This 87-nucleotide RNA from Chelonoidis abingdonii belongs to the Rfam family "mir-221 microRNA precursor family". The family's consensus secondary structure was predicted with RNAalifold. A search with the family's covariance model found it, with a score of 69 bits. The organism belongs to Chelonoidis nigra species complex, within Eukaryota. On this family, see Yao et al., J Virol 2008: "MicroRNA profile of Marek's disease virus-transformed T-cell line MSB-1: predominance of virus-encoded microRNAs". The family has 72 seed sequences and 1,797 matches in Rfam 15.1.
RNA sequence: GCAAUUGGCUGCUCAGUAGUCGGUGUAGGAUCUGUCUGAUAUUAUUACCAACAGCUACAUCUGAUUACUGGGUCACUGAUAGCAUCA
Numbered sequence: 001g002c003a004a005u006u007g008g009c010u011g012c013u014c015a016g017u018a019g020u021c022g023g024u025g026u027a028g029g030a031u032c033u034g035u036c037u038g039a040u041a042u043u044a045u046u047a048c049c050a051a052c053a054g055c056u057a058c059a060u061c062u063g064a065u066u067a068c069u070g071g072g073u074c075a076c077u078g079a080u081a082g083c084a085u086c087a
Stems, first nucleotide, its partner, number of pairs: 013071006020064003023060006032054004